Shown here is an 83-nucleotide RNA sequence from Vibrio thalassae, a member of the family "RpsF leader".
RNA sequence: UCGGUCUUUUUUAUUCGUUCCUUGCUUCCUCUGGACGACCGAGCCAAACGUGGAAGCUAAUAAUCCGUAAGGAGCAACCAAUG
Numbered sequence: 001u002c003g004g005u006c007u008u009u010u011u012u013a014u015u016c017g018u019u020c021c022u023u024g025c026u027u028c029c030u031c032u033g034g035a036c037g038a039c040c041g042a043g044c045c046a047a048a049c050g051u052g053g054a055a056g057c058u059a060a061u062a063a064u065c066c067g068u069a070a071g072g073a074g075c076a077a078c079c080a081a082u083g
Stems, first nucleotide, its partner, number of pairs: 017075007024057006032046003
Pairs were carried over by alignment from the consensus structure. The organism belongs to Vibrio, within Bacteria. On this family, see Babina et al., RNA 2015: "An S6:S18 complex inhibits translation of E. coli rpsF".